[Rfam]
mir-27 microRNA precursor family: a 78-nucleotide RNA from Megalops atlanticus. NCBI's taxonomy places the organism under Eukaryota, Deuterostomia, Chordata, Neopterygii, Megalops.
RNA sequence: UGCAGCGGCAGGACUUAGCCCACAUGUGAACACUGUUCGCUCCUCCCAUGUUCACAGUGGUUAAGUUCUGCCGCCCGA
Numbered sequence: 001u002g003c004a005g006c007g008g009c010a011g012g013a014c015u016u017a018g019c020c021c022a023c024a025u026g027u028g029a030a031c032a033c034u035g036u037u038c039g040c041u042c043c044u045c046c047c048a049u050g051u052u053c054a055c056a057g058u059g060g061u062u063a064a065g066u067u068c069u070g071c072c073g074c075c076c077g078a
Base pairs, nucleotide, nucleotide: 011068012067013066014065015064016063017062018061019060020059026055027054028053029052030051031050032049